[Rfam]
RNA sequence: UCAUCUUAAUAUACCCCUAACCGAGACCACGGGGAAAAGUCUCUCAUAUCCACCAGUGAAGGGAUUGGUGGAAAUACCAGUAUCG
Numbered sequence: 001u002c003a004u005c006u007u008a009a010u011a012u013a014c015c016c017c018u019a020a021c022c023g024a025g026a027c028c029a030c031g032g033g034g035a036a037a038a039g040u041c042u043c044u045c046a047u048a049u050c051c052a053c054c055a056g057u058g059a060a061g062g063g064a065u066u067g068g069u070g071g072a073a074a075u076a077c078c079a080g081u082a083u084c085g
Stems, first nucleotide, its partner, number of pairs: 014034004023043005050071007
Dot-bracket structure: .............[[[[.....(((((...]]]]....)))))......(((((((........)))))))..............

Rfam assigns this 85-nucleotide RNA to the family "PhotoRC-II RNA".
Pairs were carried over by alignment from the consensus structure, which is taken from published work.